This 150-nucleotide RNA sequence from Lunatimonas lonarensis belongs to the Rfam family "Group II catalytic intron D1-D4-2". Rfam links the family to the GO term Group II intron splicing. Rfam describes the family as follows. Group II introns are found in rRNA, tRNA and mRNA of organelles in fungi, plants and protists, and also in mRNA in bacteria. Taxonomically the source falls in Lunatimonas (Bacteria, Pseudomonadati, Bacteroidota, Cytophagia).
RNA sequence: GGUAGCAGACAGGCCUUCCGAUGGCAUCCUGCGGGCUUGCCCUGACUGGCAAAGUCAGGGAACAGCCAUCAAACUACCUUACGCUGCAUAUUAGGGAAACCAAUAUGUAGUGAGCGGUAAGGAAAAACGGGGACUUUGAUCCCUGUAGGU
Numbered sequence: 001g002g003u004a005g006c007a008g009a010c011a012g013g014c015c016u017u018c019c020g021a022u023g024g025c026a027u028c029c030u031g032c033g034g035g036c037u038u039g040c041c042c043u044g045a046c047u048g049g050c051a052a053a054g055u056c057a058g059g060g061a062a063c064a065g066c067c068a069u070c071a072a073a074c075u076a077c078c079u080u081a082c083g084c085u086g087c088a089u090a091u092u093a094g095g096g097a098a099a100c101c102a103a104u105a106u107g108u109a110g111u112g113a114g115c116g117g118u119a120a121g122g123a124a125a126a127a128c129g130g131g132g133a134c135u136u137u138g139a140u141c142c143c144u145g146u147a148g149g150u
Stems, first nucleotide, its partner, number of pairs: 001019002004016002020070006075149001077122006083111002086108003090104003127146006
On this family, see Bonen and Vogel, Trends Genet 2001: "The ins and outs of group II introns". It scores 61 bits against the family's covariance model. Pairs were carried over by alignment from the consensus structure.